[Rfam]
RNA sequence: UCUGGAUCUAUGAUGCGCUUACAAAUCUGCGUUAUCUAUCUGCAAUUUCCUUUUUGGAAUUGAAGAUAAAUGAUAAUAUCUGAGAUCUGUU
Number, nucleotide and partner (000 for none) at each position: 001u000002c000003u089004g088005g087006a086007u085008c000009u000010a000011u000012g000013a000014u000015g000016c000017g000018c000019u000020u000021a000022c000023a000024a000025a000026u000027c000028u000029g000030c000031g000032u000033u000034a000035u000036c000037u000038a000039u000040c000041u000042g000043c000044a000045a000046u000047u000048u000049c000050c000051u000052u000053u000054u000055u000056g000057g000058a000059a000060u000061u000062g000063a000064a000065g000066a000067u000068a000069a000070a000071u000072g000073a000074u000075a000076a000077u000078a000079u000080c000081u000082g000083a000084g000085a007086u006087c005088u004089g003090u000091u000

Shown here is a 91-nucleotide RNA from Momordica charantia, a member of the family "Small nucleolar RNA snoR27".
Its Rfam clan is "snR68 clan".
On this family, see Brown et al., RNA 2001: "Multiple snoRNA gene clusters from Arabidopsis".
Rfam classes the family as a C/D-box small nucleolar RNA.
The family has 6 seed sequences and 649 matches in Rfam 15.1.
Pairs were carried over by alignment from the consensus structure, which was predicted with WAR.